Shown here is a 57-nucleotide RNA from Capsicum baccatum, a member of the family "Plastid-rps18 3UTR RNA". It is annotated as a cis-regulatory element. NCBI's taxonomy places the organism under Eukaryota, Streptophytina, Solanoideae, Capsiceae, Capsicum. The base pairs follow the family's consensus structure, which was predicted with LocARNA. On this family, see Richter et al., Plant Commun 2023: "Retrograde signaling in plants: A critical review focusing on the GUN pathway and beyond". Plastid rps18 is a non-coding RNA (ncRNA) present in plastids. It was identified as a short stem-loop motif in the 3 prime untranslate region (3UTR) of rps18 gene.
RNA sequence: UGCAAGUAAUUUACGGUUAAGAAGAAACUGUCUCUUGUACAUAUCGUGUACUAAUCU
Dot-bracket structure: .................(((((.(......).)))))....................